[Rfam]
RNA: Alphaproteobacteria transfer-messenger RNA
Organism: Candidatus Defluviicoccus seviourii
RNA sequence: GCGCUUGCACGCGGACCGGCGCAAAGCAUAUACUUAAUUGUCGAGCAAUCGACUAUGGCGAUAAAAGCCGGAUGGAAUAAGCGUUGCGGACCCGGGGGCAGUGCCCGGCGCCUCCACCAACUAACCACAAAAAGAACAGUGGCUUCACGGGGGCGAAACAGGAUCGACGUGCGUGGUAAAGGUUCGGUCUUCGCCCGGCAUGGUACCACCGAUAUCGGGCCAAUCGAUAUAUGCCAACGACAAUGAGGCAUAUGCUCUCGCCGCUUAAGGCGUGAGCGGGGUUCGGGAGGCACCUGGCACCAGAAGCCUCCCACU
Numbered sequence: 001g002c003g004c005u006u007g008c009a010c011g012c013g014g015a016c017c018g019g020c021g022c023a024a025a026g027c028a029u030a031u032a033c034u035u036a037a038u039u040g041u042c043g044a045g046c047a048a049u050c051g052a053c054u055a056u057g058g059c060g061a062u063a064a065a066a067g068c069c070g071g072a073u074g075g076a077a078u079a080a081g082c083g084u085u086g087c088g089g090a091c092c093c094g095g096g097g098g099c100a101g102u103g104c105c106c107g108g109c110g111c112c113u114c115c116a117c118c119a120a121c122u123a124a125c126c127a128c129a130a131a132a133a134g135a136a137c138a139g140u141g142g143c144u145u146c147a148c149g150g151g152g153g154c155g156a157a158a159c160a161g162g163a164u165c166g167a168c169g170u171g172c173g174u175g176g177u178a179a180a181g182g183u184u185c186g187g188u189c190u191u192c193g194c195c196c197g198g199c200a201u202g203g204u205a206c207c208a209c210c211g212a213u214a215u216c217g218g219g220c221c222a223a224u225c226g227a228u229a230u231a232u233g234c235c236a237a238c239g240a241c242a243a244u245g246a247g248g249c250a251u252a253u254g255c256u257c258u259c260g261c262c263g264c265u266u267a268a269g270g271c272g273u274g275a276g277c278g279g280g281g282u283u284c285g286g287g288a289g290g291c292a293c294c295u296g297g298c299a300c301c302a303g304a305a306g307c308c309u310c311c312c313a314c315u
Stems, first nucleotide, its partner, number of pairs: 040053005057195005067188007082173003086170003092108005109155007196211003201222003206218002279295004286311006